[Rfam]
RNA sequence: ACUCUCUGUAUCUGUGCCGAGAUUUCGUCACACACCAGAACAAAAGAGCUGAUGAGACUCCCAAGAUAGGUGAAACA
Numbered sequence: 001a002c003u004c005u006c007u008g009u010a011u012c013u014g015u016g017c018c019g020a021g022a023u024u025u026c027g028u029c030a031c032a033c034a035c036c037a038g039a040a041c042a043a044a045a046g047a048g049c050u051g052a053u054g055a056g057a058c059u060c061c062c063a064a065g066a067u068a069g070g071u072g073a074a075a076c077a
Stems, first nucleotide, its partner, number of pairs: 003075001005073002007070001009068004015063002019060003023057007
RNA: mir-3492 microRNA precursor family